Shown here is a 55-nucleotide RNA sequence from Scopus umbretta, a member of the family "Antizyme RNA frameshifting stimulation element". A search with the family's covariance model found it, with a score of 40 bits. From the family's description: This family represents a structural element which is found in antizyme mRNA and is known to promote frameshifting. Antizyme genes have have two partially overlapping open reading frames, the second, which encodes the functional protein requires +1 translational frameshifting. Taxonomically the source falls in Scopus (Eukaryota, Deuterostomia, Sauropsida, Saurischia). For this family Rfam cites "Identification of a new antizyme mRNA +1 frameshifting stimulatory pseudoknot in a subset of diverse invertebrates and its apparent absence in intermediate species" (Ivanov et al., J Mol Biol, 2004). Its family is annotated with translational frameshifting in the Gene Ontology.
RNA sequence: CGAUGCCCUUCACCCACAGUUGAAGAUACACGGUGGGGAGAGGGUAGCAGGGAUC
Numbered sequence: 001c002g003a004u005g006c007c008c009u010u011c012a013c014c015c016a017c018a019g020u021u022g023a024a025g026a027u028a029c030a031c032g033g034u035g036g037g038g039a040g041a042g043g044g045u046a047g048c049a050g051g052g053a054u055c
Stems, first nucleotide, its partner, number of pairs: 006043002009040003013037005025055003029051001